[Rfam]
RNA sequence: AGAACAGAUAGAGGUGCGGUUGAAAAGAGUAGCACGGUCUGUCAUGCGGUAUUCCGCGGACUAAGUUUCCCAAGCCGAAUGACCGAUGUGAAAGGUAAAACUGCCGAAGCUGCGAUGUGGGGUAUCGUUUGCUGACUGAUGGUUUAAUAGGUCAUCGGUUGUCAUCAUGACUUUAUGAUGGAGUGCUAUCGGCGGA
Numbered sequence: 001a002g003a004a005c006a007g008a009u010a011g012a013g014g015u016g017c018g019g020u021u022g023a024a025a026a027g028a029g030u031a032g033c034a035c036g037g038u039c040u041g042u043c044a045u046g047c048g049g050u051a052u053u054c055c056g057c058g059g060a061c062u063a064a065g066u067u068u069c070c071c072a073a074g075c076c077g078a079a080u081g082a083c084c085g086a087u088g089u090g091a092a093a094g095g096u097a098a099a100a101c102u103g104c105c106g107a108a109g110c111u112g113c114g115a116u117g118u119g120g121g122g123u124a125u126c127g128u129u130u131g132c133u134g135a136c137u138g139a140u141g142g143u144u145u146a147a148u149a150g151g152u153c154a155u156c157g158g159u160u161g162u163c164a165u166c167a168u169g170a171c172u173u174u175a176u177g178a179u180g181g182a183g184u185g186c187u188a189u190c191g192g193c194g195g196a
Stems, first nucleotide, its partner, number of pairs: 007190005016104006024096001032089003035085005108133003112128007134160011162181007
Rfam assigns this 196-nucleotide RNA from Hominimerdicola alba to the family "Lysine riboswitch aptamer". The organism belongs to Hominimerdicola alba, within Bacteria. The match comes from Rfam's covariance-model search (86 bits).